Burkholderia RNA 7 (anti-hemB): an 89-nucleotide sequence from Variovorax sp.

[Rfam]
RNA sequence: UCCCCCGCUUUUCCUCCCUGAGCGGGUGCCUUGAUGUGUGACAGCAAAAGGGCUUCCUGGCCCGGCGUUUUGACGCCGGGCUUUUUUUU
Numbered sequence: 001u002c003c004c005c006c007g008c009u010u011u012u013c014c015u016c017c018c019u020g021a022g023c024g025g026g027u028g029c030c031u032u033g034a035u036g037u038g039u040g041a042c043a044g045c046a047a048a049a050g051g052g053c054u055u056c057c058u059g060g061c062c063c064g065g066c067g068u069u070u071u072g073a074c075g076c077c078g079g080g081c082u083u084u085u086u087u088u089u
Stems, first nucleotide, its partner, number of pairs: 004026006028053004035049001060081008

About the family: This RNA motif was identified by computational search in b-proteobacteria Burkholderia. Co-purified with Hfq, expression confirmed by Northern blot. For this family Rfam cites "Experimental identification of small non-coding regulatory RNAs in the opportunistic human pathogen Burkholderia cenocepacia J2315" (Ramos et al., Genomics, 2013).